[Rfam]
RNA sequence: UAAAAGGGUCGGUUGGUUAAUUAUGCCACGGGCGCCCUGGUUGGUGCUUGCCGUAUGGACAUCAAGACAUAUGGCCGACGCAAUUUUUGUAACUUGAAGAGGGUUGGCUCGCUCAGCCGACCCUACCC
Dot-bracket structure: .......(((((.((((.......))))((((((((......))))))))(((((((..........))))))))))))................(.((..((((((((.....)))))))))).)..
Numbered sequence: 001u002a003a004a005a006g007g008g009u010c011g012g013u014u015g016g017u018u019a020a021u022u023a024u025g026c027c028a029c030g031g032g033c034g035c036c037c038u039g040g041u042u043g044g045u046g047c048u049u050g051c052c053g054u055a056u057g058g059a060c061a062u063c064a065a066g067a068c069a070u071a072u073g074g075c076c077g078a079c080g081c082a083a084u085u086u087u088u089g090u091a092a093c094u095u096g097a098a099g100a101g102g103g104u105u106g107g108c109u110c111g112c113u114c115a116g117c118c119g120a121c122c123c124u125a126c127c128c
Stems, first nucleotide, its partner, number of pairs: 008079005014028004029050008051074007096126001098124002102122008